[Rfam]
RNA sequence: AUAAAAAGUAAUCGGAUUUAUCGUAUAAAGUUGGAAAUAAGGUCCAACAGUUUCUACCAAAUCACCAUAAAUGGUUUGACUACGAUAUUAGUGUUAUUCAUA
Numbered sequence: 001a002u003a004a005a006a007a008g009u010a011a012u013c014g015g016a017u018u019u020a021u022c023g024u025a026u027a028a029a030g031u032u033g034g035a036a037a038u039a040a041g042g043u044c045c046a047a048c049a050g051u052u053u054c055u056a057c058c059a060a061a062u063c064a065c066c067a068u069a070a071a072u073g074g075u076u077u078g079a080c081u082a083c084g085a086u087a088u089u090a091g092u093g094u095u096a097u098u099c100a101u102a
Base pairs, nucleotide, nucleotide: 019087020086021085022084023083024082025081030048031047032046033045034044035043058078059077060076061075062074063073064072
Dot-bracket structure: ..................(((((((....((((((.......)))))).........(((((((.......)))))))..)))))))...............